A member of the RNA family "Selenocysteine transfer RNA" from Corynebacterium uterequi, 93 nucleotides long. On this family, see Mizutani and Goto, FEBS Lett 2000: "Eukaryotic selenocysteine tRNA has the 9/4 secondary structure". NCBI's taxonomy places the organism under Bacteria, Bacillati, Actinomycetota, Mycobacteriales, Corynebacterium. A search with the family's covariance model found it, with a score of 67 bits. The family's consensus secondary structure is taken from published work.
RNA sequence: GGAGGCGUCCGUGCUCCUGGUGGACACCACGGUCUUCAAAACCGAUGAGGCCCGAGUAUCUCGGCCUGGCGGGUUCGAUUCCCGUCCGUCUCC
Numbered sequence: 001g002g003a004g005g006c007g008u009c010c011g012u013g014c015u016c017c018u019g020g021u022g023g024a025c026a027c028c029a030c031g032g033u034c035u036u037c038a039a040a041a042c043c044g045a046u047g048a049g050g051c052c053c054g055a056g057u058a059u060c061u062c063g064g065c066c067u068g069g070c071g072g073g074u075u076c077g078a079u080u081c082c083c084g085u086c087c088g089u090c091u092c093c
Base pairs, nucleotide, nucleotide: 001093002092003091004090005089006088007087011027012026013025015024016023017022030044031043032042033041048067049066050065051064052063070084071083072082073081